[Rfam]
RNA sequence: UGUCCCUGACUGGGGUAGAAUGGCUUUGGGUUAGUGGUGCCCAUCUAUCAGCCAGGGACAAAGCAAACCCUUGUUUAUCCCAGCUUGGCUUUUGGUCUGUGCCCCUGCCUGGGUCAUGCCUGGGACACACGG
Dot-bracket structure: ((((((((..(.((.......(((.((........)).)))......)).).))))))))...........(((((..........(((...(((.(((.((....)).))).))).)))..))))).....
Overview
Shown here is a 132-nucleotide RNA sequence from Oryctolagus cuniculus, a member of the family "Small nucleolar RNA SNORA48". Rfam's curators write: The snoRNA ACA 48 has been identified to guide pseudouridylation of the residue U3797 in the 28S rRNA subunit. Rfam 15.1 lists 2,109 matches to the family in 150 species. Rfam classes the family as an H/ACA-box small nucleolar RNA. Rfam links the family to the GO terms RNA processing and nucleolus. The sequence is in the family's curated seed alignment. NCBI's taxonomy places the organism under Eukaryota, Deuterostomia, Craniata, Gnathostomata, Oryctolagus. The family is grouped with related families in Rfam's "SNORA48 clan".